Shown here is a 117-nucleotide RNA from Niallia endozanthoxylica, a member of the family "epsC RNA".
Lineage of the source: Bacteria > Bacillati > Bacillota > Bacilli > Niallia.
The family has 30 seed sequences and 450 matches in Rfam 15.1.

[Rfam]
RNA sequence: UGGCGAUGUCUCCUGUCCGUUAUCCAUGGAGGCACUCGGUUGCGCUGUGGGGCUUUUGUAGCGAGUCCUUAGACACUGGUUGUCGGGAGCGUGAUGUGAGGGUGGGUUAGAUGCCUA
Number, nucleotide and partner (000 for none) at each position: 001u019002g018003g017004c000005g000006a000007u034008g033009u032010c031011u030012c029013c028014u000015g000016u000017c003018c002019g001020u000021u000022a000023u000024c000025c000026a000027u000028g013029g012030a011031g010032g009033c008034a007035c100036u099037c098038g097039g095040u094041u093042g092043c091044g090045c089046u088047g000048u000049g069050g068051g067052g066053c065054u064055u063056u000057u000058g000059u000060a000061g000062c000063g055064a054065g053066u052067c051068c050069u049070u000071a000072g084073a083074c082075a081076c000077u000078g000079g000080u000081u075082g074083u073084c072085g000086g000087g000088a046089g045090c044091g043092u042093g041094a040095u039096g000097u038098g037099a036100g035101g000102g000103u117104g116105g115106g114107u113108u000109a000110g000111a000112u000113g107114c106115c105116u104117a103